[Rfam]
RNA: ZMP/ZTP riboswitch aptamer (pfl RNA motif)
RNA sequence: ACCGGAGCGCGUGACUGGCGAGAAACGUGGGCAACCACGGGGGAGCGCGCAACCGUCUGCAAGCCGCUCGCCUGGGCUGCAUCG
Number, nucleotide and partner (000 for none) at each position: 001a000002c000003c000004g053005g000006a000007g050008c049009g048010c047011g046012u045013g000014a000015c042016u041017g072018g071019c070020g069021a068022g000023a000024a000025a000026c000027g038028u037029g036030g035031g000032c000033a000034a000035c030036c029037a028038c027039g000040g000041g016042g015043g000044a000045g012046c011047g010048c009049g008050c007051a000052a000053c004054c000055g000056u000057c000058u000059g000060c000061a000062a078063g077064c076065c075066g000067c000068u021069c020070g019071c018072c017073u000074g000075g065076g064077c063078u062079g000080c000081a000082u000083c000084g000